The record is a 254-nucleotide RNA sequence from Sporosarcina luteola, which matches "BsrG" in Rfam. Rfam 15.1 lists 614 matches to the family in 343 species. The family's consensus secondary structure was predicted with WAR. bsrE, bsrG and bsrH pair through intermolecular interactions with antisense sRNAs. They form type I toxin/antitoxin system that includes an mRNA encoding for a short, toxic peptide (bsrE, bsrG and bsrH) and an antitoxin that is comprised of an antisense RNA. bsrG encodes a 39-amino-acid toxin, and the 180 nucleotide antisense sRNA called SR4 acts as the antitoxin (they overlap by 123 nucleotides). SR4 interaction with the 3'UTR of bsrG RNA promotes bsrG degradation and inhibits its translation. For this family Rfam cites "Against the mainstream: the membrane-associated type I toxin BsrG from Bacillus subtilis interferes with cell envelope biosynthesis without increasing membrane permeability" (Jahn et al., Mol Microbiol, 2015).
RNA sequence: GUAAUUGAAUAGGUGACUUAAGGAUGGACGGCUCAUCCCUUUUCGAAAGGGGGUGAUGCCCAUGUCAGUAUUCGAAUCAUUAAUGGUUGCAAUUGGUCUUGCAACAUUAGUUGUCUUGAUACUGUCAAAUGAUAGAAAGAAAUAACCCAUCCUUGAGUUCGGAGCUCAUUUUGGAUGGGUUAUUCCAACCGAUAUAGCCGUCCCCUUAUAGGGAACCUGACAAUUACCCUGACCACUCGGCUGCAACCGGGUGG
Numbered sequence: 001g002u003a004a005u006u007g008a009a010u011a012g013g014u015g016a017c018u019u020a021a022g023g024a025u026g027g028a029c030g031g032c033u034c035a036u037c038c039c040u041u042u043u044c045g046a047a048a049g050g051g052g053g054u055g056a057u058g059c060c061c062a063u064g065u066c067a068g069u070a071u072u073c074g075a076a077u078c079a080u081u082a083a084u085g086g087u088u089g090c091a092a093u094u095g096g097u098c099u100u101g102c103a104a105c106a107u108u109a110g111u112u113g114u115c116u117u118g119a120u121a122c123u124g125u126c127a128a129a130u131g132a133u134a135g136a137a138a139g140a141a142a143u144a145a146c147c148c149a150u151c152c153u154u155g156a157g158u159u160c161g162g163a164g165c166u167c168a169u170u171u172u173g174g175a176u177g178g179g180u181u182a183u184u185c186c187a188a189c190c191g192a193u194a195u196a197g198c199c200g201u202c203c204c205c206u207u208a209u210a211g212g213g214a215a216c217c218u219g220a221c222a223a224u225u226a227c228c229c230u231g232a233c234c235a236c237u238c239g240g241c242u243g244c245a246a247c248c249g250g251g252u253g254g
Base pairs, nucleotide, nucleotide: 001227002226003225004224005223007221008218010200012198014196015195017157018156019155020154021153022152023151024150026147027146033056034055035054037052038051039050040049041048064126066124067123068122069121070120077092103116201214202213203212204211233254234253235252236251237250238249239248240247